[Rfam]
RNA sequence: UCCUCUUCAACGCUGCGUUUCCAUGCUACAAACAGAGAGUUUGCGCGCCAAUCUCUUGAAGGCGACCUCGCGUCCCUUCAUAAUUGCAUGUGAGAAAUUCGGAGUAACAUCUUCACCAAACACCCCAGUCUCCUGCUUGCGGGAAUGACGGGUCUGCCCGCGAGGGUCUGGCGUGAUUUCACGCUUGCAACUGGCAUCAGAAAAGCAGGGCUCAGGCCGGCCUCGUGUAUACCUUGCCUUCGGUGGGGGAAGACGGGUCGGACUUGAUGUUCCCUCUGGGAGAGUCAUUGCGAAGAUUGUGCACUGCACUUGAGUGCGAUACGCAGCGUCUGGCCUUCCCGAUCAGCUUCGGCUGGUCGGAGACUUGACAAUUCAAUUCCGAUCAUUCUGUUGAGGA
Numbered sequence: 001u002c003c004u005c006u007u008c009a010a011c012g013c014u015g016c017g018u019u020u021c022c023a024u025g026c027u028a029c030a031a032a033c034a035g036a037g038a039g040u041u042u043g044c045g046c047g048c049c050a051a052u053c054u055c056u057u058g059a060a061g062g063c064g065a066c067c068u069c070g071c072g073u074c075c076c077u078u079c080a081u082a083a084u085u086g087c088a089u090g091u092g093a094g095a096a097a098u099u100c101g102g103a104g105u106a107a108c109a110u111c112u113u114c115a116c117c118a119a120a121c122a123c124c125c126c127a128g129u130c131u132c133c134u135g136c137u138u139g140c141g142g143g144a145a146u147g148a149c150g151g152g153u154c155u156g157c158c159c160g161c162g163a164g165g166g167u168c169u170g171g172c173g174u175g176a177u178u179u180c181a182c183g184c185u186u187g188c189a190a191c192u193g194g195c196a197u198c199a200g201a202a203a204a205g206c207a208g209g210g211c212u213c214a215g216g217c218c219g220g221c222c223u224c225g226u227g228u229a230u231a232c233c234u235u236g237c238c239u240u241c242g243g244u245g246g247g248g249g250a251a252g253a254c255g256g257g258u259c260g261g262a263c264u265u266g267a268u269g270u271u272c273c274c275u276c277u278g279g280g281a282g283a284g285u286c287a288u289u290g291c292g293a294a295g296a297u298u299g300u301g302c303a304c305u306g307c308a309c310u311u312g313a314g315u316g317c318g319a320u321a322c323g324c325a326g327c328g329u330c331u332g333g334c335c336u337u338c339c340c341g342a343u344c345a346g347c348u349u350c351g352g353c354u355g356g357u358c359g360g361a362g363a364c365u366u367g368a369c370a371a372u373u374c375a376a377u378u379c380c381g382a383u384c385a386u387u388c389u390g391u392u393g394a395g396g397a
Stems, first nucleotide, its partner, number of pairs: 001397004008390002012327007022090004035078003039074001100381005109297004156167004170185005187291004193286003207275003328369003332365002
RNA: Nuclear RNase P